RNA sequence: AGCCCCUUGUAUUCGUGCUGAGAUUUCGUCAGAGAUCAGCCCGUUGGGGGCUGAUGGUACUUCUCAAAUAAGUGAAGUA
Numbered sequence: 001a002g003c004c005c006c007u008u009g010u011a012u013u014c015g016u017g018c019u020g021a022g023a024u025u026u027c028g029u030c031a032g033a034g035a036u037c038a039g040c041c042c043g044u045u046g047g048g049g050g051c052u053g054a055u056g057g058u059a060c061u062u063c064u065c066a067a068a069u070a071a072g073u074g075a076a077g078u079a
Base pairs, nucleotide, nucleotide: 002078003077006074008072010070011069012068013067017063020062021061022060024059026057027056028055029054030053
mir-3492 microRNA precursor family: a 79-nucleotide RNA sequence from Trichobilharzia regenti. Lineage of the source: Eukaryota > Opisthokonta > Platyhelminthes > Neodermata > Trichobilharzia.